[Rfam]
RNA: Purine riboswitch aptamer
Organism: Anaerofilum hominis
RNA sequence: UGAUUACUUGUCGAUAGUUGUUGUUUAAUAUCCGGAUAUGGCGGAUAGUUUCUACACCUCACCGUAAAUGAGGUACAAUGACAACAGGCGCAGCUUUG
Dot-bracket structure: .................((((((((...((((((.......))))))........((((((.......))))))..))))))))..............